[Rfam]
RNA sequence: UAAAUGCCAAUGAAGAAUCUGAAGGAAGCCAGCGGCAAAGUUCCGAACCGAGGGACACGAACUUCAUUUGAGGCUAGUUAUGUUGGAUAAGUGAACCGCUAUUCACAAAAUCCAUCCUAUCAAGAGGCAUAAUUAGUAUAUGAGGCGGUUACAUGGAAUGAAAGAGUGCGUU
Numbered sequence: 001u002a003a004a005u006g007c008c009a010a011u012g013a014a015g016a017a018u019c020u021g022a023a024g025g026a027a028g029c030c031a032g033c034g035g036c037a038a039a040g041u042u043c044c045g046a047a048c049c050g051a052g053g054g055a056c057a058c059g060a061a062c063u064u065c066a067u068u069u070g071a072g073g074c075u076a077g078u079u080a081u082g083u084u085g086g087a088u089a090a091g092u093g094a095a096c097c098g099c100u101a102u103u104c105a106c107a108a109a110a111u112c113c114a115u116c117c118u119a120u121c122a123a124g125a126g127g128c129a130u131a132a133u134u135a136g137u138a139u140a141u142g143a144g145g146c147g148g149u150u151a152c153a154u155g156g157a158a159u160g161a162a163a164g165a166g167u168g169c170g171u172u
Stems, first nucleotide, its partner, number of pairs: 001014001004011002028172001030170001036164001040159006046150005062145006073137003077133007085113004091106004
A member of the RNA family "Group II catalytic intron D1-D4-3" from Spirobacillus cienkowskii, 172 nucleotides long. The organism belongs to Spirobacillus, within Bacteria. Gene Ontology term of the family: Group II intron splicing. From the family's description: Group II introns are found in rRNA, tRNA and mRNA of organelles in fungi, plants and protists, and also in mRNA in bacteria. A search with the family's covariance model found it, with a score of 110 bits.